[Rfam]
RNA: Plastid-rpl16 group II-D1 intron
RNA sequence: AAGAGCCUCGAGUCAAUAAAGACUAAGCAGAUUGACUCAAAGACAA
Numbered sequence: 001a002a003g004a005g006c007c008u009c010g011a012g013u014c015a016a017u018a019a020a021g022a023c024u025a026a027g028c029a030g031a032u033u034g035a036c037u038c039a040a041a042g043a044c045a046a
Stems, first nucleotide, its partner, number of pairs: 008040001010038008